mir-210 microRNA precursor family: a 96-nucleotide RNA from Brassicogethes aeneus. The literature on the family includes a 2005 paper in Genes Dev by Chen et al., "The developmental miRNA profiles of zebrafish as determined by small RNA cloning". NCBI's taxonomy places the organism under Eukaryota, Mandibulata, Allotriocarida, Polyphaga, Brassicogethes.

RNA sequence: GAAAUUUUUACUACAGCUGCUGGACGCUGCACAAGAUUAGACAUGAAAACUCUUGUGCGUGUGACAGCGGCUAUUGUGGAAAAUUUCCUUCAACAG
Numbered sequence: 001g002a003a004a005u006u007u008u009u010a011c012u013a014c015a016g017c018u019g020c021u022g023g024a025c026g027c028u029g030c031a032c033a034a035g036a037u038u039a040g041a042c043a044u045g046a047a048a049a050c051u052c053u054u055g056u057g058c059g060u061g062u063g064a065c066a067g068c069g070g071c072u073a074u075u076g077u078g079g080a081a082a083a084u085u086u087c088c089u090u091c092a093a094c095a096g
Stems, first nucleotide, its partner, number of pairs: 005082007015072008025061002028059006035052002